[Rfam]
Rfam assigns this 108-nucleotide sequence from Bacillus solimangrovi to the family "SAM riboswitch aptamer (S box leader)".
A search with the family's covariance model found it, with a score of 72 bits.

RNA sequence: AUCUUAUCAAGAGCAGGUGGAGGGAACAAGCCCUACGAAGCCCGGCAACCGACUUCAAUUACGAAGCACGGUGCUAAGUCUUGCAGUCAUUCGGCUGAGAGAUAAGAA
Number, nucleotide and partner (000 for none) at each position: 001a000002u107003c106004u105005u104006a103007u102008c101009a000010a000011g000012a000013g043014c000015a000016g042017g041018u040019g000020g000021a000022g033023g032024g031025a000026a000027c083028a082029a081030g080031c024032c023033c022034u000035a000036c000037g000038a000039a000040g018041c017042c016043c013044g075045g074046c073047a072048a000049c071050c070051g000052a000053c066054u065055u064056c000057a000058a000059u000060u000061a000062c000063g000064a055065a054066g053067c000068a000069c000070g050071g049072u047073g046074c045075u044076a000077a000078g000079u100080c030081u029082u028083g027084c097085a096086g095087u094088c093089a000090u000091u000092c000093g088094g087095c086096u085097g084098a000099g000100a079101g008102a007103u006104a005105a004106g003107a002108a000